[Rfam]
Plant signal recognition particle RNA: a 302-nucleotide sequence from Corchorus olitorius. The family's RNA type in Rfam is non-coding RNA gene. Rfam links the family to the GO terms SRP-dependent cotranslational protein targeting to membrane, signal sequence recognition and signal recognition particle, endoplasmic reticulum targeting. On this family, see Batey et al., J Mol Biol 2001: "Structural and energetic analysis of RNA recognition by a universally conserved protein from the signal recognition particle". The family's consensus secondary structure is taken from published work.

RNA sequence: GCCGAGCUGGGUAGCGCUAGCUUGUAACCUGAGUGGGGGCAUUGAGGUGAUUGGACAAUGACUCGGUCCACCAGGCAGGGCCUGUGUGCGACUUUCUGGCCCGCCCGUUCCAAGUGGAGAGUUGAGUCACGUGGUCCGAGCGAAGGCUUGGGCCUCGUGGCUCCUAGAGUGGAGGGCACCGCGUGAGGCUGGUUUCACAGAGCAGCGACAACCUCCCGCUUUCGACAGUGGAAGGAUAACGGGCCGGUGCAACCCAGACCCAAAUUGCCUGGUGGGCUGAGAUCAAUCGGACAAUCACCUUU
Number, nucleotide and partner (000 for none) at each position: 001g040002c039003c038004g023005a022006g021007c020008u019009g018010g017011g000012u000013a000014g000015c000016g000017c010018u009019a008020g007021c006022u005023u004024g000025u000026a000027a000028c037029c036030u035031g000032a000033g000034u000035g030036g029037g028038g003039g002040c001041a000042u000043u000044g301045a300046g299047g298048u297049g296050a295051u294052u293053g292054g000055a000056c289057a000058a000059u285060g284061a000062c281063u280064c279065g278066g277067u000068c275069c274070a273071c272072c271073a270074g269075g268076c267077a266078g261079g260080g259081c000082c257083u256084g255085u000086g000087u251088g250089c000090g000091a248092c000093u000094u000095u000096c247097u246098g245099g244100c243101c242102c241103g240104c000105c235106c234107g000108u233109u232110c231111c230112a229113a000114g226115u225116g000117g223118a222119g221120a220121g219122u218123u000124g163125a162126g161127u160128c159129a158130c157131g156132u000133g154134g153135u152136c151137c150138g149139a148140g147141c146142g000143a000144a000145g000146g141147c140148u139149u138150g137151g136152g135153c134154c133155u000156c131157g130158u129159g128160g127161c126162u125163c124164c169165u000166a000167g000168a000169g164170u000171g216172g215173a214174g213175g212176g000177c000178a000179c000180c000181g000182c207183g206184u205185g000186a000187g000188g000189c200190u199191g198192g000193u000194u000195u000196c000197a000198c191199a190200g189201a000202g000203c000204a000205g184206c183207g182208a000209c000210a000211a000212c175213c174214u173215c172216c171217c000218g122219c121220u120221u119222u118223c117224g000225a115226c114227a000228g000229u112230g111231g110232a109233a108234g106235g105236a000237u000238a000239a000240c103241g102242g101243g100244c099245c098246g097247g096248u091249g000250c088251a087252a000253c000254c000255c084256a083257g082258a000259c080260c079261c078262a000263a000264a000265u000266u077267g076268c075269c074270u073271g072272g071273u070274g069275g068276g000277c066278u065279g064280a063281g062282a000283u000284c060285a059286a000287u000288c000289g056290g000291a000292c053293a052294a051295u050296c049297a048298c047299c046300u045301u044302u000